[Rfam]
RNA sequence: CAAAUAGAACGCUAGGGUUCCGGUUAAGCAAAAUAAGGCAAACAGCCAAUCGCUUAACGACUGGUCCGAGAGCAUUCGACCUCUCCUCUGAGAAGAGCAUGGGUUACACGGCGGGAUAAAAGCCCGGGAGAC
Numbered sequence: 001c002a003a004a005u006a007g008a009a010c011g012c013u014a015g016g017g018u019u020c021c022g023g024u025u026a027a028g029c030a031a032a033a034u035a036a037g038g039c040a041a042a043c044a045g046c047c048a049a050u051c052g053c054u055u056a057a058c059g060a061c062u063g064g065u066c067c068g069a070g071a072g073c074a075u076u077c078g079a080c081c082u083c084u085c086c087u088c089u090g091a092g093a094a095g096a097g098c099a100u101g102g103g104u105u106a107c108a109c110g111g112c113g114g115g116a117u118a119a120a121a122g123c124c125c126g127g128g129a130g131a132c
Stems, first nucleotide, its partner, number of pairs: 007077003011073002015067002020064002022061001023058006078105005084099001107127001109130001113125003